Rfam assigns this 114-nucleotide RNA sequence from Brassicogethes aeneus to the family "Potassium channel RNA editing signal". Lineage of the source: Eukaryota > Protostomia > Nitidulidae > Meligethinae > Brassicogethes. The family's consensus secondary structure is taken from published work. Rfam describes the family as follows. This family represents a group of sequences related to the human potassium channel Kv1.1 hairpin element which directs the efficient modification of an adenosine to inosine by an adenosine deaminase acting on RNA (ADAR). The ADAR modification causes an isoleucine/valine recoding event which lies in the ion-conducting pore of the potassium channel. It is thought that this editing event targets the process of fast inactivation and allows a more rapid recovery from inactivation at negative potentials. It is annotated as a cis-regulatory element. The match comes from Rfam's covariance-model search (66 bits).
RNA sequence: GUCGGUUACGGUGAUAUUUAUCCAACGACACCACUAGGGAAAGUUAUAGGAAGUGUAUGUUGUAUUUGCGGUGUGUUGGUGAUCGCGUUGCCCAUUCCUAUCAUUGUUAAUAAU
Numbered sequence: 001g002u003c004g005g006u007u008a009c010g011g012u013g014a015u016a017u018u019u020a021u022c023c024a025a026c027g028a029c030a031c032c033a034c035u036a037g038g039g040a041a042a043g044u045u046a047u048a049g050g051a052a053g054u055g056u057a058u059g060u061u062g063u064a065u066u067u068g069c070g071g072u073g074u075g076u077u078g079g080u081g082a083u084c085g086c087g088u089u090g091c092c093c094a095u096u097c098c099u100a101u102c103a104u105u106g107u108u109a110a111u112a113a114u
Base pairs, nucleotide, nucleotide: 001114002113004111008107009106010105011104013102014101015100016099020095021094037077038076040074049063051061